[Rfam]
RNA: Small nucleolar RNA SNORA79
RNA sequence: UGACAACUGUUCCUCCUGCUGCCCCAAGUGAUGGCAUGUGGGAUUUUAGGUUGUCAGAGAUGAUCUGGGUCUUAUUCACUCAGGGUCCAUGAGGUGGCAGGGCUGCCCUUAUGCACUCUGAACUUUGCGGGGCCCAACACGU
Numbered sequence: 001u002g003a004c005a006a007c008u009g010u011u012c013c014u015c016c017u018g019c020u021g022c023c024c025c026a027a028g029u030g031a032u033g034g035c036a037u038g039u040g041g042g043a044u045u046u047u048a049g050g051u052u053g054u055c056a057g058a059g060a061u062g063a064u065c066u067g068g069g070u071c072u073u074a075u076u077c078a079c080u081c082a083g084g085g086u087c088c089a090u091g092a093g094g095u096g097g098c099a100g101g102g103c104u105g106c107c108c109u110u111a112u113g114c115a116c117u118c119u120g121a122a123c124u125u126u127g128c129g130g131g132g133c134c135c136a137a138c139a140c141g142u
Stems, first nucleotide, its partner, number of pairs: 001056008014043005020036004068134006080121007088113002093108002095105002